[Rfam]
RNA sequence: CACAGAAAAAGGCAAACCAUUCGAAAGAAUGGGACGCAAAGUCAAGAGUCUAACACACCGAUAUUCAGGUGUCAUGAUCGUCCGGCUGCCGAG
Number, nucleotide and partner (000 for none) at each position: 001c000002a000003c000004a000005g000006a000007a000008a000009a000010a000011g000012g037013c036014a000015a000016a000017c032018c031019a030020u029021u028022c027023g000024a000025a000026a000027g022028a021029a020030u019031g018032g017033g000034a000035c000036g013037c012038a000039a000040a087041g086042u085043c084044a000045a000046g082047a081048g078049u077050c076051u000052a000053a000054c000055a072056c071057a070058c069059c000060g000061a000062u000063a000064u000065u000066c000067a000068g000069g058070u057071g056072u055073c000074a000075u000076g050077a049078u048079c000080g000081u047082c046083c000084g043085g042086c041087u040088g000089c000090c000091g000092a000093g000